[Rfam]
RNA sequence: AUGGGCACUUGGCCAAUCUUGUGGCAUAUUACAGAGAAGUCACAGGGUUGUAUCCAAGGUCUGU
Numbered sequence: 001a002u003g004g005g006c007a008c009u010u011g012g013c014c015a016a017u018c019u020u021g022u023g024g025c026a027u028a029u030u031a032c033a034g035a036g037a038a039g040u041c042a043c044a045g046g047g048u049u050g051u052a053u054c055c056a057a058g059g060u061c062u063g064u
Stems, first nucleotide, its partner, number of pairs: 001064006009057001012054001016048010027031001
This 64-nucleotide RNA sequence from Salvator merianae belongs to the Rfam family "MAT2A 3'UTR stem loop B". Rfam 15.1 lists 248 matches to the family in 157 species. The match comes from Rfam's covariance-model search (53 bits). Pairs were carried over by alignment from the consensus structure, which is taken from published work. Rfam classes the family as a cis-regulatory element.